[Rfam]
RNA sequence: AAAACGGCCCUUCUCAGGGCCACCACAUUUGACAUCUACAAUAUAG
Numbered sequence: 001a002a003a004a005c006g007g008c009c010c011u012u013c014u015c016a017g018g019g020c021c022a023c024c025a026c027a028u029u030u031g032a033c034a035u036c037u038a039c040a041a042u043a044u045a046g
Base pairs, nucleotide, nucleotide: 006021007020008019009018010017011016